This 119-nucleotide RNA from Carya illinoinensis belongs to the Rfam family "Small nucleolar RNA snoR104".
The literature on the family includes a 2002 paper in Curr Biol by Marker et al., "Experimental RNomics: identification of 140 candidates for small non-messenger RNAs in the plant Arabidopsis thaliana".
It is annotated as an H/ACA-box small nucleolar RNA.
Taxonomically the source falls in Carya (Eukaryota, eudicotyledons, Pentapetalae, fabids).
RNA sequence: GGGAAGCAUCCAAAGCUGAGAGAUGUCUCCUUGUGCAACCUUCCAACAGAAGACCUCUUUAAUUUCCAGCUUGUGCUACUAAAGCAAGUUAUGCACUUGUCAAAUUACCAGAGACAUGA
Numbered sequence: 001g002g003g004a005a006g007c008a009u010c011c012a013a014a015g016c017u018g019a020g021a022g023a024u025g026u027c028u029c030c031u032u033g034u035g036c037a038a039c040c041u042u043c044c045a046a047c048a049g050a051a052g053a054c055c056u057c058u059u060u061a062a063u064u065u066c067c068a069g070c071u072u073g074u075g076c077u078a079c080u081a082a083a084g085c086a087a088g089u090u091a092u093g094c095a096c097u098u099g100u101c102a103a104a105u106u107a108c109c110a111g112a113g114a115c116a117u118g119a
Base pairs, nucleotide, nucleotide: 001031002030003029006026007025008024009023010022056112057111058110069098072095073094074093075092078089079088080087